[Rfam]
The record is a 288-nucleotide RNA sequence from Camponotus floridanus, which matches "Nuclear RNase P" in Rfam. Ribonuclease P (RNase P) is a ubiquitous endoribonuclease, found in archaea, bacteria and eukarya as well as chloroplasts and mitochondria. Its best characterised activity is the generation of mature 5'-ends of tRNAs by cleaving the 5'-leader elements of precursor-tRNAs. Cellular RNase Ps are ribonucleoproteins. RNA from bacterial RNase Ps retains its catalytic activity in the absence of the protein subunit, i.e. it is a ribozyme. Isolated eukaryotic and archaeal RNase P RNA has not been shown to retain its catalytic function, but is still essential for the catalytic activity of the holoenzyme. Although the archaeal and eukaryotic holoenzyme s have a much greater protein content than the bacterial ones, the RNA cores from all the three lineages are homologous -- helices corresponding to P1, P2, P3, P4, and P10/11 are common to all cellular RNase P RNAs. Yet, there is considerable sequence variation, particularly among the eukaryotic RNAs. The literature on the family includes a 1998 paper in Annu Rev Biochem by Frank and Pace, "Ribonuclease P: unity and diversity in a tRNA processing ribozyme". The match comes from Rfam's covariance-model search (125 bits). The family's RNA type in Rfam is ribozyme. Pairs were carried over by alignment from the consensus structure, which is taken from published work.

RNA sequence: GUAGUUUCGAUCUAUUGGAAGGGAUACACAAACGAGGCAUACAUUGCCAUACUCUCCCGGGAAGGUCUGAGAUAAGAUCGUUGAACGUUCUAGACGGACGGUAUCACAAUGAUAUGUACGAGAACCAGAAAUAGCUUUACGUUUUCCAAAAUGCCAGGGAUGCUUUUUUAACAGCAGAGGCGACUGGAAACGAAAAGUUGGAAUCUCGUAUGAUUAGCUUUUUUAGUAUAAUCCAUAAGUCUGGUAUAAUUUAUACCUGAAACUCAAUUCAGACUAAUCCGUUGCUAC
Numbered sequence: 001g002u003a004g005u006u007u008c009g010a011u012c013u014a015u016u017g018g019a020a021g022g023g024a025u026a027c028a029c030a031a032a033c034g035a036g037g038c039a040u041a042c043a044u045u046g047c048c049a050u051a052c053u054c055u056c057c058c059g060g061g062a063a064g065g066u067c068u069g070a071g072a073u074a075a076g077a078u079c080g081u082u083g084a085a086c087g088u089u090c091u092a093g094a095c096g097g098a099c100g101g102u103a104u105c106a107c108a109a110u111g112a113u114a115u116g117u118a119c120g121a122g123a124a125c126c127a128g129a130a131a132u133a134g135c136u137u138u139a140c141g142u143u144u145u146c147c148a149a150a151a152u153g154c155c156a157g158g159g160a161u162g163c164u165u166u167u168u169u170a171a172c173a174g175c176a177g178a179g180g181c182g183a184c185u186g187g188a189a190a191c192g193a194a195a196a197g198u199u200g201g202a203a204u205c206u207c208g209u210a211u212g213a214u215u216a217g218c219u220u221u222u223u224u225a226g227u228a229u230a231a232u233c234c235a236u237a238a239g240u241c242u243g244g245u246a247u248a249a250u251u252u253a254u255a256c257c258u259g260a261a262a263c264u265c266a267a268u269u270c271a272g273a274c275u276a277a278u279c280c281g282u283u284g285c286u287a288c
Base pairs, nucleotide, nucleotide: 001288002287003286004285008281009280012239013238016235017234018233021057022056024055036048037047038046039045067272068271069270070269071268076215077214078213079212086100087099088098089097090096101115102114103113104112105111116211117210118209119208120207121206122205136197137196138195240260241259243257244256245255246254